[Rfam]
RNA: Group II catalytic intron D1-D4-4
RNA sequence: UAGUCAGUGAAAGUCUGACCUCGGAAAGUACCAAGACAUCCGAGUAGCUAGGAUACCUGCGUACGGCGAAAUCUGUGCGUAGAAGCGUGUCGACGAAAGUACCCGUCAGAGUACGGGGCGAGCAAGAUACCAGGCCGCAACAUGA
Number, nucleotide and partner (000 for none) at each position: 001u000002a000003g000004u000005c000006a000007g000008u000009g000010a000011a000012a000013g000014u000015c000016u000017g000018a000019c000020c044021u043022c042023g041024g040025a000026a000027a000028g000029u000030a000031c000032c000033a000034a000035g000036a000037c000038a000039u000040c024041c023042g022043a021044g020045u000046a000047g000048c000049u000050a000051g000052g091053a090054u089055a088056c087057c082058u081059g080060c079061g078062u077063a000064c000065g000066g073067c000068g000069a000070a000071a000072u000073c066074u000075g000076u000077g062078c061079g060080u059081a058082g057083a000084a000085g000086c000087g056088u055089g054090u053091c052092g000093a000094c000095g000096a000097a000098a000099g119100u000101a000102c117103c116104c115105g114106u113107c000108a000109g000110a000111g000112u000113a106114c105115g104116g103117g102118g000119c099120g000121a000122g138123c137124a000125a000126g000127a000128u000129a000130c000131c000132a000133g000134g000135c000136c000137g123138c122139a000140a000141c000142a000143u000144g000145a000